[Rfam]
RNA sequence: UUGGACCAUGGGGAAAGAAGCCCCGCAACUUCCCCGUGGUCCCA
Numbered sequence: 001u002u003g004g005a006c007c008a009u010g011g012g013g014a015a016a017g018a019a020g021c022c023c024c025g026c027a028a029c030u031u032c033c034c035c036g037u038g039g040u041c042c043c044a
Stems, first nucleotide, its partner, number of pairs: 003042003007038009017029001020026002
RNA: ribosomal frameshift site
Organism: Lentivirus humimdef2